[Rfam]
RNA sequence: AAGCAGACAGUUAUCCCUUUCUAGUCUCCCUCUUGUGACUUUAGAGGGAGUCAGUCUGCAAAAUUAAAUGGUGAGCUGUUUUUGUCCAGCAUCACAGUGUGUUGAUGGUGGCUUCAGUCAUGCCAAACAUCU
Dot-bracket structure: ..((((((...........(((((((..........))..)))))........)))))).........(((((.(..(((...(((...(((((..(....))))))..)))...)))).))))).......

Shown here is a 132-nucleotide RNA from Phascolarctos cinereus, a member of the family "Small nucleolar RNA SNORA56". Its family is annotated with nucleolus and RNA processing in the Gene Ontology. Rfam's curators write: ACA56 is a member of the H/ACA class of snoRNA that guide the sites of modification of uridines to pseudouridines. It scores 119 bits against the family's covariance model. Its Rfam clan is "SNORA56 clan".